Rfam assigns this 413-nucleotide RNA sequence to the family "transfer-messenger RNA".
RNA sequence: GGGGCUGUCUAGGUCUCGACAGGUGAGGAGGAACUUUAAGAGCAGCGGAUUGGUCACCUAAUGACCUUACACAAACACAAGUGCCAAGAAAAACGUGUCAUUCUUCCGUCAGCCCUCUUUCCAAAUGGCUGCUGCUUACUAAUCUAGAAUUAGUUACCAGUUUUGCCUAGGCAUUAGUUCCUAGGCCACGGACGUGUCUUGAAGAACUCGGUGAGUUUUCUUCUUGUACGCGUAAACAGAUUCACCUUAUCUUUAUACUUUUUCUUGCCAGUAGAAAGACGGACACAAAGACAGGGAGUCGAGUUUCCUUGGUCGACUGACACCAUGAGAUUCGACUGACAAGUCAGCCUAAGCUGUAGUGCUUGAAGCGGGGCCUCAUUUGGACAGGGGUUCGAUUCCCCUCAGCUCCACCA
Numbered sequence: 001g002g003g004g005c006u007g008u009c010u011a012g013g014u015c016u017c018g019a020c021a022g023g024u025g026a027g028g029a030g031g032a033a034c035u036u037u038a039a040g041a042g043c044a045g046c047g048g049a050u051u052g053g054u055c056a057c058c059u060a061a062u063g064a065c066c067u068u069a070c071a072c073a074a075a076c077a078c079a080a081g082u083g084c085c086a087a088g089a090a091a092a093a094c095g096u097g098u099c100a101u102u103c104u105u106c107c108g109u110c111a112g113c114c115c116u117c118u119u120u121c122c123a124a125a126u127g128g129c130u131g132c133u134g135c136u137u138a139c140u141a142a143u144c145u146a147g148a149a150u151u152a153g154u155u156a157c158c159a160g161u162u163u164u165g166c167c168u169a170g171g172c173a174u175u176a177g178u179u180c181c182u183a184g185g186c187c188a189c190g191g192a193c194g195u196g197u198c199u200u201g202a203a204g205a206a207c208u209c210g211g212u213g214a215g216u217u218u219u220c221u222u223c224u225u226g227u228a229c230g231c232g233u234a235a236a237c238a239g240a241u242u243c244a245c246c247u248u249a250u251c252u253u254u255a256u257a258c259u260u261u262u263u264c265u266u267g268c269c270a271g272u273a274g275a276a277a278g279a280c281g282g283a284c285a286c287a288a289a290g291a292c293a294g295g296g297a298g299u300c301g302a303g304u305u306u307c308c309u310u311g312g313u314c315g316a317c318u319g320a321c322a323c324c325a326u327g328a329g330a331u332u333c334g335a336c337u338g339a340c341a342a343g344u345c346a347g348c349c350u351a352a353g354c355u356g357u358a359g360u361g362c363u364u365g366a367a368g369c370g371g372g373g374c375c376u377c378a379u380u381u382g383g384a385c386a387g388g389g390g391u392u393c394g395a396u397u398c399c400c401c402u403c404a405g406c407u408c409c410a411c412c413a
Base pairs, nucleotide, nucleotide: 001409002408003407004406005405006404007403020382021381022380023379024378025377026376027375028374034368035367036366037365038364039363040362042360043356044355045354046353047055048054052066053065163188165186166185167184168183169182170181193232194231195230196229197228201223203221204220205219206218210246211245212244213243214242215241216240250279251278252277253276254275256273257272258271261296262295263294266291298336299335300334301333302332303331304330305329306328307327311324312323313322315349317347318346319345320344321343386402387401388400389399390398
Rfam classes the family as a non-coding RNA gene. A search with the family's covariance model found it, with a score of 106 bits.